Aggregatibacter sRNA 22: an 89-nucleotide RNA sequence from Pseudohongiella acticola.
[Rfam]
RNA sequence: GUUCGACAAAACGCACUGCGUUUUGGACGCCCGUCAGGGCGCCCCGCAAGGGGUGAGUAAUCCGCCAAUGCGGAUUGCGAAUCAAUCUC
Number, nucleotide and partner (000 for none) at each position: 001g000002u000003u000004c000005g000006a000007c025008a024009a023010a022011a021012c020013g019014c018015a000016c000017u000018g014019c013020g012021u011022u010023u009024u008025g007026g000027a000028c041029g040030c039031c038032c037033g000034u000035c000036a000037g032038g031039g030040c029041g028042c000043c053044c052045c051046g000047c000048a000049a000050g000051g045052g044053g043054u000055g000056a000057g078058u077059a076060a075061u074062c073063c072064g071065c070066c000067a000068a000069u000070g065071c064072g063073g062074a061075u060076u059077g058078c057079g000080a000081a000082u000083c000084a000085a000086u000087c000088u000089c000
Pairs were carried over by alignment from the consensus structure, which was predicted with RNAfold. The source organism's lineage runs through Bacteria, Pseudomonadota, Gammaproteobacteria, Pseudomonadales and Pseudohongiella. A reference for the family is Oogai et al. (2017), "Small RNA repertoires and their intraspecies variation in Aggregatibacter actinomycetemcomitans", DNA Res.